RNA sequence: CUGUAACCUGGUUCAAGUAAUCCAGGAUAGGCUGUCUGAUCCACUCUGGCCUGUGCUUGAUUACUUGCACUUGGUUGCAG
Numbered sequence: 001c002u003g004u005a006a007c008c009u010g011g012u013u014c015a016a017g018u019a020a021u022c023c024a025g026g027a028u029a030g031g032c033u034g035u036c037u038g039a040u041c042c043a044c045u046c047u048g049g050c051c052u053g054u055g056c057u058u059g060a061u062u063a064c065u066u067g068c069a070c071u072u073g074g075u076u077g078c079a080g
Stems, first nucleotide, its partner, number of pairs: 002079004007074002010071003014067009024057002027054007

This 80-nucleotide sequence from Cynoglossus semilaevis belongs to the Rfam family "mir-26 microRNA precursor family".
Taxonomically the source falls in Cynoglossus (Eukaryota, Bilateria, Actinopteri, Acanthomorphata).
A reference for the family is Lagos-Quintana et al. (2002), "Identification of tissue-specific microRNAs from mouse", Curr Biol.
Pairs were carried over by alignment from the consensus structure, which was predicted with RNAalifold.
Gene Ontology terms of the family: miRNA-mediated post-transcriptional gene silencing and RISC complex.